[Rfam]
RNA sequence: CUCAGGGAAGGGGUCCCUCAGCCCGGAUUUCGAGAGGGCCCAGGCCAGGCUGAGGGAACCCACUGGUGCACA
Dot-bracket structure: .....(..((.((((((((((((.((.((..(......)..)).)).))))))))))..)).))..).....
Rfam assigns this 72-nucleotide RNA from Myotis myotis to the family "mir-9193 microRNA precursor family". Its family is annotated with miRNA-mediated post-transcriptional gene silencing and RISC complex in the Gene Ontology. The base pairs follow the family's consensus structure, which was predicted with RNAalifold. NCBI's taxonomy places the organism under Eukaryota, Deuterostomia, Craniata, Gnathostomata, Myotis.